[Rfam]
Rfam assigns this 98-nucleotide RNA sequence from Neobacillus piezotolerans to the family "Guanidine-I riboswitch aptamer". The organism belongs to Neobacillus, within Bacteria. Pairs were carried over by alignment from the consensus structure. Rfam describes the family as follows. This family represents a conserved RNA structure found upstream of the ykkC and yxkD genes in Bacillus subtilis and related genes in other bacteria.
RNA sequence: AAAAAUGUUUUCUAGGGUUCCGUAACAUCAUGUUAGCCUGGUCCGAGAGAAAACUCACAGCCAAUGCUGUGCCACGGAGGGACAAAAGCCUGGGAGAU
Dot-bracket structure: ......((((((..((...((((((((...)))))..).)).))....)))))).((((((....)))))).(.[...(((.......))).)..]..